[Rfam]
RNA sequence: GUUUGAGUGAUGACUUAACAAUUUGUCGGAAACCCCUUCACCCCUCUUAUGGGUGAGAACAGCAGUCUGACAAAC
Numbered sequence: 001g002u003u004u005g006a007g008u009g010a011u012g013a014c015u016u017a018a019c020a021a022u023u024u025g026u027c028g029g030a031a032a033c034c035c036c037u038u039c040a041c042c043c044c045u046c047u048u049a050u051g052g053g054u055g056a057g058a059a060c061a062g063c064a065g066u067c068u069g070a071c072a073a074a075c
Stems, first nucleotide, its partner, number of pairs: 001075005